[Rfam]
RNA sequence: UGACGGGGGCCCGCACAAGCGGUGGAGCAUGUGGUUUAAUUCGAUGCAACGCGAAGAACCUUACCUACCCUUGACAUCCAGAGAAUCUGUGAGAGAUCGUAGAGUGCCUUCGGGAACUCUGAGACAGGUGCUGCAUGGCUGUCGUCAGCUCGUGUCGUGAGAUGUUGGGUUAAGUCCCGUAACGAGCGCAACCCUUAUCCUUAGUUGCCAACAGGUCAAGCUGGGAACUCUAGGGAGACUGCCGGUGAUAAACCGGAGGAAGGUGGGGACGACGUCAAGUCAUCAUGGCCCUUAUGGGUAGGGCUACACACGUGCUACAAUGGCCGGUACAGAGGGCAGCGAACUUGCGAAAGUCAGCAAAUCCCAGAAAGCCGGUCCUAGUCCGGAUUGCAGUCUGCAACUCGACUGCAUGAAGUCGGAAUCGCUAGUAAUCGCGAAUCAGAAUGUCGCGGUGAAUACGUUCCCGGGCCUUGUACACACCGCCCGUCACACCAUGGGAGUGGGUUGCAAAAGAAGUAGGUAGUUUAACCUUCGGGAGGGCGCUUACCACUUUGUGAUUCAUGACUGGGGUGAAGUCGUAACAAGG
Numbered sequence: 001u002g003a004c005g006g007g008g009g010c011c012c013g014c015a016c017a018a019g020c021g022g023u024g025g026a027g028c029a030u031g032u033g034g035u036u037u038a039a040u041u042c043g044a045u046g047c048a049a050c051g052c053g054a055a056g057a058a059c060c061u062u063a064c065c066u067a068c069c070c071u072u073g074a075c076a077u078c079c080a081g082a083g084a085a086u087c088u089g090u091g092a093g094a095g096a097u098c099g100u101a102g103a104g105u106g107c108c109u110u111c112g113g114g115a116a117c118u119c120u121g122a123g124a125c126a127g128g129u130g131c132u133g134c135a136u137g138g139c140u141g142u143c144g145u146c147a148g149c150u151c152g153u154g155u156c157g158u159g160a161g162a163u164g165u166u167g168g169g170u171u172a173a174g175u176c177c178c179g180u181a182a183c184g185a186g187c188g189c190a191a192c193c194c195u196u197a198u199c200c201u202u203a204g205u206u207g208c209c210a211a212c213a214g215g216u217c218a219a220g221c222u223g224g225g226a227a228c229u230c231u232a233g234g235g236a237g238a239c240u241g242c243c244g245g246u247g248a249u250a251a252a253c254c255g256g257a258g259g260a261a262g263g264u265g266g267g268g269a270c271g272a273c274g275u276c277a278a279g280u281c282a283u284c285a286u287g288g289c290c291c292u293u294a295u296g297g298g299u300a301g302g303g304c305u306a307c308a309c310a311c312g313u314g315c316u317a318c319a320a321u322g323g324c325c326g327g328u329a330c331a332g333a334g335g336g337c338a339g340c341g342a343a344c345u346u347g348c349g350a351a352a353g354u355c356a357g358c359a360a361a362u363c364c365c366a367g368a369a370a371g372c373c374g375g376u377c378c379u380a381g382u383c384c385g386g387a388u389u390g391c392a393g394u395c396u397g398c399a400a401c402u403c404g405a406c407u408g409c410a411u412g413a414a415g416u417c418g419g420a421a422u423c424g425c426u427a428g429u430a431a432u433c434g435c436g437a438a439u440c441a442g443a444a445u446g447u448c449g450c451g452g453u454g455a456a457u458a459c460g461u462u463c464c465c466g467g468g469c470c471u472u473g474u475a476c477a478c479a480c481c482g483c484c485c486g487u488c489a490c491a492c493c494a495u496g497g498g499a500g501u502g503g504g505u506u507g508c509a510a511a512a513g514a515a516g517u518a519g520g521u522a523g524u525u526u527a528a529c530c531u532u533c534g535g536g537a538g539g540g541c542g543c544u545u546a547c548c549a550c551u552u553u554g555u556g557a558u559u560c561a562u563g564a565c566u567g568g569g570g571u572g573a574a575g576u577c578g579u580a581a582c583a584a585g586g
Base pairs, nucleotide, nucleotide: 001477002476003474004473005472007471008470009469010468011467012466013465015461016460019425020424021423022422023421024318026316027315028314029313030312031311032310033309034307035306040055041054042053043052064302065301066300067299068298069297070296077124078123079121080120081119082118083117086103087102088101089100090099091098092097105116107114108113127291128290130289131288132287133286136285137284138280139279140278141276143274144273148187149186150185151184152183153182154163155162156161166179167178168177169176193268194267195266196265198236199235200234201233202232203231204230208225209224212223213222214221239259240258242256243255244254245253246252322377323376324375325374326373327372328371334365335364336363339358340357344353345352346351384415389410390409391408392407393406394405395404431453432452433451434450435449436448437447480585482582485578486577490572491571492570493569495567496566497565500562501561502560503559504558505557506556507555508554509553510552511551516547517546518545519544520543521542523541524540525539526538529536530535